[Rfam]
RNA sequence: CCGUGGGACACCCCUCCCCAACGAGGGGCGGCUAUCUGAGAGGGUAGAGCCA
Numbered sequence: 001c002c003g004u005g006g007g008a009c010a011c012c013c014c015u016c017c018c019c020a021a022c023g024a025g026g027g028g029c030g031g032c033u034a035u036c037u038g039a040g041a042g043g044g045u046a047g048a049g050c051c052a
Stems, first nucleotide, its partner, number of pairs: 011028006032047006
Dot-bracket structure: ..........((((((......))))))...((((((....)))))).....
This 52-nucleotide RNA sequence belongs to the Rfam family "serC leader". This family is a putative regulatory RNA structure that is found upstream of the serC-serA operon in some alpha-proteobacteria. On this family, see Corbino et al., Genome Biol 2005: "Evidence for a second class of S-adenosylmethionine riboswitches and other regulatory RNA motifs in alpha-proteobacteria". The base pairs follow the family's consensus structure.